[Rfam]
RNA sequence: CUUCAACGAGCCCAGCCACAGCGGCGUACUGCGAUCCUGCCCAUAGGUCGACAGAACAGCCUGCGCCUC
Numbered sequence: 001c002u003u004c005a006a007c008g009a010g011c012c013c014a015g016c017c018a019c020a021g022c023g024g025c026g027u028a029c030u031g032c033g034a035u036c037c038u039g040c041c042c043a044u045a046g047g048u049c050g051a052c053a054g055a056a057c058a059g060c061c062u063g064c065g066c067c068u069c
Base pairs, nucleotide, nucleotide: 015025016024017023030065031064032063037054038053039052041050043048
RNA: ASpks TB sRNA